[Rfam]
RNA: c-di-AMP riboswitch aptamer (ydaO/yuaA leader)
Organism: Bacillus sp. AFS041924
RNA sequence: UAACCAUAAUUGCUUAAUCUUAUUAAGAGCGGGGGAACCAUUUCUUUAUUGGGGUGAAUCCUUUUUUGUUAAAGGUAGGGGUAUUCUUUAAUCCCGAAUCCGACAGCUAACCUCGUAAGCAUUUAAAGAAGGGGGU
Numbered sequence: 001u002a003a004c005c006a007u008a009a010u011u012g013c014u015u016a017a018u019c020u021u022a023u024u025a026a027g028a029g030c031g032g033g034g035g036a037a038c039c040a041u042u043u044c045u046u047u048a049u050u051g052g053g054g055u056g057a058a059u060c061c062u063u064u065u066u067u068g069u070u071a072a073a074g075g076u077a078g079g080g081g082u083a084u085u086c087u088u089u090a091a092u093c094c095c096g097a098a099u100c101c102g103a104c105a106g107c108u109a110a111c112c113u114c115g116u117a118a119g120c121a122u123u124u125a126a127a128g129a130a131g132g133g134g135g136u
Stems, first nucleotide, its partner, number of pairs: 011121004018028003029116006039051002052101003060075004078095004
Dot-bracket structure: ..........((((...(((.....)))((((((....((.........))(((.....((((........))))..((((..........))))...))).........)))))).))))...............